[Rfam]
This 88-nucleotide RNA sequence from Hibiscus trionum belongs to the Rfam family "Small nucleolar RNA R11/Z151". The base pairs follow the family's consensus structure, which was predicted with PFOLD. Rfam links the family to the GO terms nucleolus and RNA processing. Taxonomically the source falls in Hibiscus (Eukaryota, Streptophyta, Embryophyta, Mesangiospermae). Rfam 15.1 lists 802 matches to the family in 218 species.

RNA sequence: AGGCUAAUAAUGACAAUUUAAAAUGAUCUUAGCGGAUUUUAGUAAUAUUUUAUUAUCAAUGAUUUGAUUGUUACACACACUGAAGCCA
Numbered sequence: 001a002g003g004c005u006a007a008u009a010a011u012g013a014c015a016a017u018u019u020a021a022a023a024u025g026a027u028c029u030u031a032g033c034g035g036a037u038u039u040u041a042g043u044a045a046u047a048u049u050u051u052a053u054u055a056u057c058a059a060u061g062a063u064u065u066g067a068u069u070g071u072u073a074c075a076c077a078c079a080c081u082g083a084a085g086c087c088a
Base pairs, nucleotide, nucleotide: 002087003086004085005084